Record summary:
A member of the RNA family "Bacterial RNase P class A" from Pseudoclavibacter endophyticus, 361 nucleotides long. Pairs were carried over by alignment from the consensus structure, which is taken from published work. A search with the family's covariance model found it, with a score of 279 bits.

[Rfam]
RNA sequence: CGGGCCGGCCAGACGGUCGCGUCGCCGGUCGGUUCGCCGCCGGUGCCGAGGAACGUCCGGGCUCCACAGGGCAGGACGGUGGGUAACGCCCACCCGGGGCAACCCGCGAGCCAGUGCAACAGAAAGCAGACCGCCCGCUUCGCGCGGGUAAGGGUGAAAGGGUGCGGUAAGAGCGCACCGGGCGCCUGGUGACAGGCGUCGCACGGUAAACCUCGUCCGGAGCAAGGUCAGACAGGAGACGACGACGCUGCCCGCCGAGUCUCCGGGUAGACCGCUAGAGGCGCGCGGCAACGCGCGCCCGAGAGAGAUGGCCGUCACGGAUUCGUCCGUACAGAACCCGGCGUACCGGCCGACCCGUUCA
Numbered sequence: 001c002g003g004g005c006c007g008g009c010c011a012g013a014c015g016g017u018c019g020c021g022u023c024g025c026c027g028g029u030c031g032g033u034u035c036g037c038c039g040c041c042g043g044u045g046c047c048g049a050g051g052a053a054c055g056u057c058c059g060g061g062c063u064c065c066a067c068a069g070g071g072c073a074g075g076a077c078g079g080u081g082g083g084u085a086a087c088g089c090c091c092a093c094c095c096g097g098g099g100c101a102a103c104c105c106g107c108g109a110g111c112c113a114g115u116g117c118a119a120c121a122g123a124a125a126g127c128a129g130a131c132c133g134c135c136c137g138c139u140u141c142g143c144g145c146g147g148g149u150a151a152g153g154g155u156g157a158a159a160g161g162g163u164g165c166g167g168u169a170a171g172a173g174c175g176c177a178c179c180g181g182g183c184g185c186c187u188g189g190u191g192a193c194a195g196g197c198g199u200c201g202c203a204c205g206g207u208a209a210a211c212c213u214c215g216u217c218c219g220g221a222g223c224a225a226g227g228u229c230a231g232a233c234a235g236g237a238g239a240c241g242a243c244g245a246c247g248c249u250g251c252c253c254g255c256c257g258a259g260u261c262u263c264c265g266g267g268u269a270g271a272c273c274g275c276u277a278g279a280g281g282c283g284c285g286c287g288g289c290a291a292c293g294c295g296c297g298c299c300c301g302a303g304a305g306a307g308a309u310g311g312c313c314g315u316c317a318c319g320g321a322u323u324c325g326u327c328c329g330u331a332c333a334g335a336a337c338c339c340g341g342c343g344u345a346c347c348g349g350c351c352g353a354c355c356c357g358u359u360c361a
Base pairs, nucleotide, nucleotide: 001357002356003355004354006352007351008350009349010348012316013315014314015313016312017311018310020048021047023045024044025043026042027041028040053344054343055342057341058340059339060338061337062222063221064220065219069253070252071251072250074218075217076216077215078214079093080092081091082090083089094108095106096105097104098103109213110212114211115210116207117206131153132152133149134148135147136146137145138144161179162178163177164176165175166174180202181200182199183198184197185196186195187194188193226273227272228271229270235264236263237262238261239260240259280299281298282297283296284295285294286293287292